[Rfam]
RNA sequence: GAAAGCAGGCGAGGUGAUCGCGACCAGGUUGUGUUGGUUGAGGAAAGUCCGGGCUCCUACAUGACCAAGCUUGCUGGGUAACACCCAGUGCGGGCAACCGUGAGGAAAGUGCCACAGAAACAUACAGCCAAUGGCCUUACGGAAUUUUUCCAGGUACAGGCAAAGGUGCAAAGGUGUGGUAAGAGCACACCAGCAACAUUGAGAAAUGUUGGCUUGGUAAACCCCAGCGAGGAGCAAGGUUUAGGAACAAGGGUUGGUCAGAUUUCCUGUUCCUCCUUUUGAGUGCCGCUUGAGAUCACUGGUAACGGUGAUCCUAGAUAGAUGAUCGCCCACUGGUACUAACAUUUCAGGUUGUAGUAGUGAACAGAAUCCGGCUUAUGUCCUGCUUUCAAAA
Numbered sequence: 001g002a003a004a005g006c007a008g009g010c011g012a013g014g015u016g017a018u019c020g021c022g023a024c025c026a027g028g029u030u031g032u033g034u035u036g037g038u039u040g041a042g043g044a045a046a047g048u049c050c051g052g053g054c055u056c057c058u059a060c061a062u063g064a065c066c067a068a069g070c071u072u073g074c075u076g077g078g079u080a081a082c083a084c085c086c087a088g089u090g091c092g093g094g095c096a097a098c099c100g101u102g103a104g105g106a107a108a109g110u111g112c113c114a115c116a117g118a119a120a121c122a123u124a125c126a127g128c129c130a131a132u133g134g135c136c137u138u139a140c141g142g143a144a145u146u147u148u149u150c151c152a153g154g155u156a157c158a159g160g161c162a163a164a165g166g167u168g169c170a171a172a173g174g175u176g177u178g179g180u181a182a183g184a185g186c187a188c189a190c191c192a193g194c195a196a197c198a199u200u201g202a203g204a205a206a207u208g209u210u211g212g213c214u215u216g217g218u219a220a221a222c223c224c225c226a227g228c229g230a231g232g233a234g235c236a237a238g239g240u241u242u243a244g245g246a247a248c249a250a251g252g253g254u255u256g257g258u259c260a261g262a263u264u265u266c267c268u269g270u271u272c273c274u275c276c277u278u279u280u281g282a283g284u285g286c287c288g289c290u291u292g293a294g295a296u297c298a299c300u301g302g303u304a305a306c307g308g309u310g311a312u313c314c315u316a317g318a319u320a321g322a323u324g325a326u327c328g329c330c331c332a333c334u335g336g337u338a339c340u341a342a343c344a345u346u347u348c349a350g351g352u353u354g355u356a357g358u359a360g361u362g363a364a365c366a367g368a369a370u371c372c373g374g375c376u377u378a379u380g381u382c383c384u385g386c387u388u389u390c391a392a393a394a
Base pairs, nucleotide, nucleotide: 001390002389003388004387005386006385007384008383009382011379013330014329015328016327017326018325019324021040022039023038024037025036026035027034045377046376047375049374050373051372052371053370054234055233056232057231063266064265069228070227072226073225074088075087076086077085078084089103090101091100092099093098104224105223109222110221111218112217113216125165127161128160129159132156133155135153173191174190175189176188177187178186193213194211195210196209197208198207199206200205238287239286240285249279250278251277252276253275257271259269260268261267294313295312296311297310298309299308300307301306
A member of the RNA family "Bacterial RNase P class A", 394 nucleotides long. Rfam links the family to the GO terms dimeric ribonuclease P complex, ribonuclease P activity and tRNA processing. By type it is a ribozyme. It scores 245 bits against the family's covariance model.